A member of the RNA family "U5 spliceosomal RNA" from Aspergillus clavatus, 120 nucleotides long. For this family Rfam cites "The uRNA database" (Zwieb, Nucleic Acids Res, 1997). Rfam describes the family as follows. U5 RNA is a component of both types of known spliceosome. The precise function of this molecule is unknown, though it is known that the 5' loop is required for splice site selection and p220 binding, and that both the 3' stem-loop and the Sm site are important for Sm protein binding and cap methylation.
RNA sequence: GAGGAGUGGGACAAGCUAGCUCAGAACCCAUUUCUUGCCUUUUACCAGAGAUGGCCGUGGCUUGCCCAAAAUACUCCUCUUCUCAAUCUUUGGACUUAUCCAUCGACACAGCUGUCGAUU
Numbered sequence: 001g002a003g004g005a006g007u008g009g010g011a012c013a014a015g016c017u018a019g020c021u022c023a024g025a026a027c028c029c030a031u032u033u034c035u036u037g038c039c040u041u042u043u044a045c046c047a048g049a050g051a052u053g054g055c056c057g058u059g060g061c062u063u064g065c066c067c068a069a070a071a072u073a074c075u076c077c078u079c080u081u082c083u084c085a086a087u088c089u090u091u092g093g094a095c096u097u098a099u100c101c102a103u104c105g106a107c108a109c110a111g112c113u114g115u116c117g118a119u120u
Base pairs, nucleotide, nucleotide: 003077004076005075006074009067010066012064013063014062015061016060017059018058028054029053030052031051032050033049034048035047094120102119103118104117105116106115107114